Annotation
The record is a 197-nucleotide RNA sequence from Miscanthus lutarioriparius, which matches "MIR1435 microRNA precursor family" in Rfam. A search with the family's covariance model found it, with a score of 106 bits. The source organism's lineage runs through Eukaryota, Embryophyta, Panicoideae, Andropogonodae and Miscanthus. The base pairs follow the family's consensus structure, which was predicted with RNAalifold. Its family is annotated with RISC complex and miRNA-mediated post-transcriptional gene silencing in the Gene Ontology.
RNA sequence: UAGCUUUGUCCUGUGUCAAACUUAUGUAAAUUGACCAAACAUUUAGGAAACUAUAUUAACAUCUACAGGUUCAAUACUAAACUACCAAAACAUAUUUCAUGGCGAAUUAAAUGAAACUAAUCUAGUGUUGUAGAUGUUGGUGCAUUUUUCCGUAAACUCAGUCGAAGAUAAAGGAGUUUGACUUAGGACAAAGCUAA
Numbered sequence: 001u002a003g004c005u006u007u008g009u010c011c012u013g014u015g016u017c018a019a020a021c022u023u024a025u026g027u028a029a030a031u032u033g034a035c036c037a038a039a040c041a042u043u044u045a046g047g048a049a050a051c052u053a054u055a056u057u058a059a060c061a062u063c064u065a066c067a068g069g070u071u072c073a074a075u076a077c078u079a080a081a082c083u084a085c086c087a088a089a090a091c092a093u094a095u096u097u098c099a100u101g102g103c104g105a106a107u108u109a110a111a112u113g114a115a116a117c118u119a120a121u122c123u124a125g126u127g128u129u130g131u132a133g134a135u136g137u138u139g140g141u142g143c144a145u146u147u148u149u150c151c152g153u154a155a156a157c158u159c160a161g162u163c164g165a166a167g168a169u170a171a172a173g174g175a176g177u178u179u180g181a182c183u184u185a186g187g188a189c190a191a192a193g194c195u196a197a
Base pairs, nucleotide, nucleotide: 005192006191007190008189009188011186012185013184015182016181017180018179019178020177021176022175023174025172031165032164033163034162035161046151047150048149049148050147054142055141056140058138059137060136061135062134063133064132065131066130067129071125073123